This 600-nucleotide part of an RNA from Pugettia quadridens belongs to the Rfam family "Eukaryotic small subunit ribosomal RNA". It is one of the family's seed sequences.
[Rfam]
RNA sequence: AGUCAUAUGCUUGUCUCGUUGUCUCGUUGCCUGCUGUCUAAGUACAAGCCGAUUCAAGGCGAAACCGCGAAUGGCUCAUUAAAUCAGCUAUGAUUCAUUGGAUCUGUACCCACAUUUACUUGGAUAACUGUGGUAAUUCUAGAGCUAAUACAUGCCCAGAGUCUCUGACCGCAAGGAAGAGCGCUUUUAUUAGUUCAAAACCGGUCGGGCCUUCGGGUCCGUCACCCUGGUGUGUUGAAUCUGAAUAACUUUUCUCACGCACGGUCUCCGCGAGGGCCGCCUCUUUCAAGUGUUGCCUUAUCAGCUUUCGAUUGUAAGGUUACUACGCCUUCAAUGGCUAUUACGGUUACGGGUAAUCAGGGUUUUAUUCCGUUUUCCCCCCCUUGGGAACGGGUACCACAUCUAAGGAAGGCCGGAGGGACGGCAAUUACCCAACCCGGCACGGGGAGGUAGUGACCGAAAAUAACGAUGCGAGACUCAUCCGAGCCUCGCAAUCGGAAUGAGUACACUUUAAAUGGUUUAACGAGGAUCCAUUGGAGGGCAAGUCUGGUGCCAGCAGCCGCGGUAAUUCCAGCUCCAAUAGCGUAUAUUAAAGUUGUU
Numbered sequence: 001a002g003u004c005a006u007a008u009g010c011u012u013g014u015c016u017c018g019u020u021g022u023c024u025c026g027u028u029g030c031c032u033g034c035u036g037u038c039u040a041a042g043u044a045c046a047a048g049c050c051g052a053u054u055c056a057a058g059g060c061g062a063a064a065c066c067g068c069g070a071a072u073g074g075c076u077c078a079u080u081a082a083a084u085c086a087g088c089u090a091u092g093a094u095u096c097a098u099u100g101g102a103u104c105u106g107u108a109c110c111c112a113c114a115u116u117u118a119c120u121u122g123g124a125u126a127a128c129u130g131u132g133g134u135a136a137u138u139c140u141a142g143a144g145c146u147a148a149u150a151c152a153u154g155c156c157c158a159g160a161g162u163c164u165c166u167g168a169c170c171g172c173a174a175g176g177a178a179g180a181g182c183g184c185u186u187u188u189a190u191u192a193g194u195u196c197a198a199a200a201c202c203g204g205u206c207g208g209g210c211c212u213u214c215g216g217g218u219c220c221g222u223c224a225c226c227c228u229g230g231u232g233u234g235u236u237g238a239a240u241c242u243g244a245a246u247a248a249c250u251u252u253u254c255u256c257a258c259g260c261a262c263g264g265u266c267u268c269c270g271c272g273a274g275g276g277c278c279g280c281c282u283c284u285u286u287c288a289a290g291u292g293u294u295g296c297c298u299u300a301u302c303a304g305c306u307u308u309c310g311a312u313u314g315u316a317a318g319g320u321u322a323c324u325a326c327g328c329c330u331u332c333a334a335u336g337g338c339u340a341u342u343a344c345g346g347u348u349a350c351g352g353g354u355a356a357u358c359a360g361g362g363u364u365u366u367a368u369u370c371c372g373u374u375u376u377c378c379c380c381c382c383c384u385u386g387g388g389a390a391c392g393g394g395u396a397c398c399a400c401a402u403c404u405a406a407g408g409a410a411g412g413c414c415g416g417a418g419g420g421a422c423g424g425c426a427a428u429u430a431c432c433c434a435a436c437c438c439g440g441c442a443c444g445g446g447g448a449g450g451u452a453g454u455g456a457c458c459g460a461a462a463a464u465a466a467c468g469a470u471g472c473g474a475g476a477c478u479c480a481u482c483c484g485a486g487c488c489u490c491g492c493a494a495u496c497g498g499a500a501u502g503a504g505u506a507c508a509c510u511u512u513a514a515a516u517g518g519u520u521u522a523a524c525g526a527g528g529a530u531c532c533a534u535u536g537g538a539g540g541g542c543a544a545g546u547c548u549g550g551u552g553c554c555a556g557c558a559g560c561c562g563c564g565g566u567a568a569u570u571c572c573a574g575c576u577c578c579a580a581u582a583g584c585g586u587a588u589a590u591u592a593a594a595g596u597u598g599u600u
Stems, first nucleotide, its partner, number of pairs: 001591003005588007014461001016459001018457001019455001021422001027420002030418001032417001034415001036068002042065002048060002085295002090291002094289002100284003119154001121152002128144002131141003163181004169175001187248005204233001209218003259277002262274001263271001298346002304338003311335004316331004350372004355364003381394002400411001402409002428452001430451003436446004467497003470493006477486003504524002506521001508520001510518001534580006547574004556563002
The organism belongs to Pugettia, within Eukaryota. The family's consensus secondary structure is taken from published work.